[Rfam]
RNA sequence: CCGCGCUAGAUGGGGAGCUGGCGGUGCCCUGUUACCCGUAAUCCGCCUUAACGGGGUUGAAUUCCUAUCCGAGGCGCAUUUUGUGCGAGGUUUGGCCUGAAUCGCCGGUGUUGACGAUUGGGUCCUGCGCAACGAGAGCUUCUGAACCGUGUCAGGUCCUGACGGAAGCAGCACUAAGGAAGAAUUCCCGUGUGCCGCAGGGGUGCCUGAUCCGAGUCGUAGGUUCAGGGUCCGCUCGGGCAAAAUGCGUCGGAGAUAGGUGCGCGG
Numbered sequence: 001c002c003g004c005g006c007u008a009g010a011u012g013g014g015g016a017g018c019u020g021g022c023g024g025u026g027c028c029c030u031g032u033u034a035c036c037c038g039u040a041a042u043c044c045g046c047c048u049u050a051a052c053g054g055g056g057u058u059g060a061a062u063u064c065c066u067a068u069c070c071g072a073g074g075c076g077c078a079u080u081u082u083g084u085g086c087g088a089g090g091u092u093u094g095g096c097c098u099g100a101a102u103c104g105c106c107g108g109u110g111u112u113g114a115c116g117a118u119u120g121g122g123u124c125c126u127g128c129g130c131a132a133c134g135a136g137a138g139c140u141u142c143u144g145a146a147c148c149g150u151g152u153c154a155g156g157u158c159c160u161g162a163c164g165g166a167a168g169c170a171g172c173a174c175u176a177a178g179g180a181a182g183a184a185u186u187c188c189c190g191u192g193u194g195c196c197g198c199a200g201g202g203g204u205g206c207c208u209g210a211u212c213c214g215a216g217u218c219g220u221a222g223g224u225u226c227a228g229g230g231u232c233c234g235c236u237c238g239g240g241c242a243a244a245a246u247g248c249g250u251c252g253g254a255g256a257u258a259g260g261u262g263c264g265c266g267g
Stems, first nucleotide, its partner, number of pairs: 001267006009058003012030004017025003035055005064260006073251005080244005086238004094231001096229006105223002107218003116212008124201006130192002133190002136187002139182005149174004157166003
RNA: Bacterial large signal recognition particle RNA